RNA sequence: CGCUCCCCCGCAGGAGAGCGGCCGCAAGGCCCGCCGAAGGCGCAAACUCCCAUGAUCGCUCAGGCAAACAGACUGCGGGUUUUUU
Numbered sequence: 001c002g003c004u005c006c007c008c009c010g011c012a013g014g015a016g017a018g019c020g021g022c023c024g025c026a027a028g029g030c031c032c033g034c035c036g037a038a039g040g041c042g043c044a045a046a047c048u049c050c051c052a053u054g055a056u057c058g059c060u061c062a063g064g065c066a067a068a069c070a071g072a073c074u075g076c077g078g079g080u081u082u083u084u085u
Stems, first nucleotide, its partner, number of pairs: 007079007020031004033065003036061002040059003046053001
RNA: Glycine riboswitch aptamer
Organism: Crenobacter intestini